[Rfam]
RNA: mir-187 microRNA precursor family
Organism: Austrofundulus limnaeus
RNA sequence: CUGGCUGAGCCGUCGGCUGCAACACAGGACAUGGGUCCUAACUCCCAUCGCUGCUCGUGUCUUGUGUUGCAGCCAGUGGAGCUGC
Numbered sequence: 001c002u003g004g005c006u007g008a009g010c011c012g013u014c015g016g017c018u019g020c021a022a023c024a025c026a027g028g029a030c031a032u033g034g035g036u037c038c039u040a041a042c043u044c045c046c047a048u049c050g051c052u053g054c055u056c057g058u059g060u061c062u063u064g065u066g067u068u069g070c071a072g073c074c075a076g077u078g079g080a081g082c083u084g085c
Base pairs, nucleotide, nucleotide: 011078012077015074016073017072018071020069021068022067023066024065025064026063027062028061029060030059032057033056034055035054